[Rfam]
RNA sequence: GCUAUGAUGGGCCAUUCCGCUUCGCAACCGUUUGGUGCGAAGCGGUUGUCCAUCAUUAUGUGCAUAAAUAACCGCCAGAAUACU
Numbered sequence: 001g002c003u004a005u006g007a008u009g010g011g012c013c014a015u016u017c018c019g020c021u022u023c024g025c026a027a028c029c030g031u032u033u034g035g036u037g038c039g040a041a042g043c044g045g046u047u048g049u050c051c052a053u054c055a056u057u058a059u060g061u062g063c064a065u066a067a068a069u070a071a072c073c074g075c076c077a078g079a080a081u082a083c084u
Base pairs, nucleotide, nucleotide: 017045018044019043020042021041022040023039024038025037026036048063049062051060052059053058
RNA: Peptidase-S11 RNA
Organism: Kluyvera genomosp. 3